Yersinia sRNA 190: a 102-nucleotide RNA from Chloropsis hardwickii. The base pairs follow the family's consensus structure. Rfam classes the family as a small RNA. A reference for the family is Righetti et al. (2016), "Temperature-responsive in vitro RNA structurome of Yersinia pseudotuberculosis", Proc Natl Acad Sci U S A. The source organism's lineage runs through Eukaryota, Deuterostomia, Dipnotetrapodomorpha, Passeriformes and Chloropsis.

[Rfam]
Nucleotides: 102
Stems, first nucleotide, its partner, number of pairs: 008028002014023003031095005039085001041083003045075002048072001
Number, partner (000 for none) and nucleotide at each position: 001000g002000c003000g004000a005000a006000u007000u008028g009027c010000u011000a012000c013000g014023a015022u016021a017000u018000c019000g020000u021016u022015a023014u024000a025000a026000u027009g028008c029000c030000c031095g032094a033093c034092c035091u036000u037000g038000u039085u040000u041083c042082u043081g044000u045075u046074c047000u048072c049000a050000g051000g052000g053000u054000g055000a056000a057000u058000u059000u060000g061000c062000c063000c064000c065000u066000u067000a068000a069000c070000a071000g072048g073000u074046g075045a076000c077000a078000a079000a080000u081043c082042g083041g084000u085039a086000a087000c088000a089000u090000c091035g092034g093033g094032u095031u096000a097000u098000u099000u100000u101000c102000u